[Rfam]
RNA sequence: UGGUUUGGGACUCAAGAUGUGGUCAAAUGUUGUUAAGGUAUGUUCAGCAGUAAAACUUGACCACAUUUUGAGUACCAAACCA
Dot-bracket structure: .(((((((.(.(((((((((((((((.(.(((((...((.......))))))).).))))))))))))))).).))))))).

The record is an 82-nucleotide sequence from Callithrix jacchus, which matches "mir-1265 microRNA precursor family" in Rfam. Lineage of the source: Eukaryota > Theria > Haplorrhini > Callithrix > Callithrix. Its family is annotated with RISC complex and miRNA-mediated post-transcriptional gene silencing in the Gene Ontology. The base pairs follow the family's consensus structure, which was predicted with RNAalifold.